This 82-nucleotide RNA sequence from Escherichia coli belongs to the Rfam family "tRNA". It is annotated as a transfer RNA. From the family's description: Transfer RNA (tRNA) molecules are approximately 80 nucleotides in length. The base pairs follow the family's consensus structure, which is taken from published work. Gene Ontology term of the family: triplet codon-amino acid adaptor activity.
[Rfam]
RNA sequence: GCGGGAGUGGCGAAAUUGGUAGACGCACCAGAUUUAGGUUCUGGCGCCGCAAGGUGUGCGAGUUCAAGUCUCGCCUCCCGCA
Dot-bracket structure: (((((((..(((...........))).(((((.......))))).............(((((.......)))))))))))).